Rfam assigns this 589-nucleotide part of an RNA from Verticillium dahliae to the family "Eukaryotic large subunit ribosomal RNA".
The organism belongs to Verticillium dahliae, within Eukaryota.
Rfam links the family to the GO terms ribosome and structural constituent of ribosome.

[Rfam]
RNA sequence: AACUCUAGUUUAAUAUUAUAAAAAGAUAUAGGAGGUAUAGAAUAAAUAAGAGCUCUAGCGCUAAUAAAAUAUUAUUACUUUUAUUAUUUUUUUACUUAUUUAAUAGAAUAGGGCUAGAUUUACGUCUAACUUCUAAUAUUAAGGUCCUUCGUAGGCUAACUUAGGUUAGAGAUAUUAUUAAGUAGGGAGUUUAGCUAGGGUAAUAUAUCUAUUAAACUAUAACGUAGGUAUCCUAAAGGGGGCUUAUAGAGAAUAGAAAUCUCUAAUAGAAUAAAAGGGUAAAAAUCCCUUUAAUUUUAAUUUUUAAUAUAAAUAUAAACUAUAAAAGUAUAGCUUAUCGAUCCUUUAAUCCUUUAGAGUUUAAAGCUAGAAAUACUAGAAAAGUUAUUAUAGGGAUAACUAGCUUAUAGCAGCUAAGCGUUUAUAGCGAUAUCGCUUUUUAAUCCUUCAAUAUCGGCUACUCCCAUUGUUUUUUUACUUAUCCGGUGGAGCGGGGCUGGACUUACGUCCAACUUCUAGUGUUAAGGUCCUUCGCGGGCCGACCCGGGUCGGAGACAUUGUCAGGUGGGGAGUUUGGCUGGGGCGGCAC
Dot-bracket structure: .((((...(((.(((...((((((((((((((((..........(((((..((....))............))))).))))))).)))))))))....(((.(.....(.((....((......))................(((((....................................................................................................................................................................................................................................................................................................................................................................................................)))))..)).)..).))).....))).)))....))))..((((.....))).)